RNA sequence: CAGCGGAUGAGAGAUCCGCCAGAGUAGUUGUCGAUUCGACUCUGUAGCCACCCGAGCGCUUACGCGGAGUGAUCCAUGUGAGCGAAGCCUCGGGGACAAUGCCUGCCUUUUGGGCGGGCCAGCAAACCCACGGGCCGUAACGCGA
Numbered sequence: 001c002a003g004c005g006g007a008u009g010a011g012a013g014a015u016c017c018g019c020c021a022g023a024g025u026a027g028u029u030g031u032c033g034a035u036u037c038g039a040c041u042c043u044g045u046a047g048c049c050a051c052c053c054g055a056g057c058g059c060u061u062a063c064g065c066g067g068a069g070u071g072a073u074c075c076a077u078g079u080g081a082g083c084g085a086a087g088c089c090u091c092g093g094g095g096a097c098a099a100u101g102c103c104u105g106c107c108u109u110u111u112g113g114g115c116g117g118g119c120c121a122g123c124a125a126a127c128c129c130a131c132g133g134g135c136c137g138u139a140a141c142g143c144g145a
Base pairs, nucleotide, nucleotide: 020044021043022042023041024040052093053092054091055090056089057084058083059082060081061080062079066075067074101119102118103117104116105115106114122138123137

The record is a 145-nucleotide RNA sequence, which matches "Group II catalytic intron D1-D4-4" in Rfam. Rfam links the family to the GO term Group II intron splicing. Group II introns are found in rRNA, tRNA and mRNA of organelles in fungi, plants and protists, and also in mRNA in bacteria.